[Rfam]
RNA sequence: UUGCAUGAUGGAAACCAAUUUUCAGCUCUUUGUUCUUUAAGGAGCAUGAAUAUAUCCAUAACAUGCUACAUAAAUGAGGAGCUGUCAGGGCUGCCAGCCUUUUAGUUAAGGCUGUGUGGUAGUAUAUUUCUCCAACACUG
Numbered sequence: 001u002u003g004c005a006u007g008a009u010g011g012a013a014a015c016c017a018a019u020u021u022u023c024a025g026c027u028c029u030u031u032g033u034u035c036u037u038u039a040a041g042g043a044g045c046a047u048g049a050a051u052a053u054a055u056c057c058a059u060a061a062c063a064u065g066c067u068a069c070a071u072a073a074a075u076g077a078g079g080a081g082c083u084g085u086c087a088g089g090g091c092u093g094c095c096a097g098c099c100u101u102u103u104a105g106u107u108a109a110g111g112c113u114g115u116g117u118g119g120u121a122g123u124a125u126a127u128u129u130c131u132c133c134a135a136c137a138c139u140g
Base pairs, nucleotide, nucleotide: 003066004065005064006063007062022048025045026044027043028042029041078133079132080131081130090120091119094116095114096113097112098111099110100109101108
The family of this 140-nucleotide sequence from Ornithorhynchus anatinus is "Small nucleolar RNA U109". Rfam classes the family as an H/ACA-box small nucleolar RNA. NCBI's taxonomy places the organism under Eukaryota, Opisthokonta, Chordata, Tetrapoda, Ornithorhynchus. On this family, see Gu et al., Nucleic Acids Res 2005: "A novel experimental approach for systematic identification of box H/ACA snoRNAs from eukaryotes". Rfam 15.1 lists 1,405 matches to the family in 622 species.